[Rfam]
RNA: Small nucleolar RNA SNORD100
RNA sequence: UGAAUCCGUGAUGAUAUUCUGGCUCCCUCUUCUGAACCAAGUGAGGAGAACUGCCAUUGUUACCCAAAUAUUUCUGAGGUCCA
Numbered sequence: 001u002g003a004a005u006c007c008g009u010g011a012u013g014a015u016a017u018u019c020u021g022g023c024u025c026c027c028u029c030u031u032c033u034g035a036a037c038c039a040a041g042u043g044a045g046g047a048g049a050a051c052u053g054c055c056a057u058u059g060u061u062a063c064c065c066a067a068a069u070a071u072u073u074c075u076g077a078g079g080u081c082c083a
Stems, first nucleotide, its partner, number of pairs: 001083002004080003